[Rfam]
RNA sequence: CUCUGGAGAGACCCCGAAUGGGGCGCCGAAGGGAUAGCGAUCUCAGGCGACAGGACAGAG
Numbered sequence: 001c002u003c004u005g006g007a008g009a010g011a012c013c014c015c016g017a018a019u020g021g022g023g024c025g026c027c028g029a030a031g032g033g034a035u036a037g038c039g040a041u042c043u044c045a046g047g048c049g050a051c052a053g054g055a056c057a058g059a060g
Stems, first nucleotide, its partner, number of pairs: 001060005012023004025048003028044002032042002
Dot-bracket structure: (((((......((((....)))).(((((..((.......)))).))).......)))))

Glycine riboswitch aptamer: a 60-nucleotide sequence from Palleronia marisminoris. Pairs were carried over by alignment from the consensus structure. NCBI's taxonomy places the organism under Bacteria, Pseudomonadati, Rhodobacterales, Roseobacteraceae, Palleronia.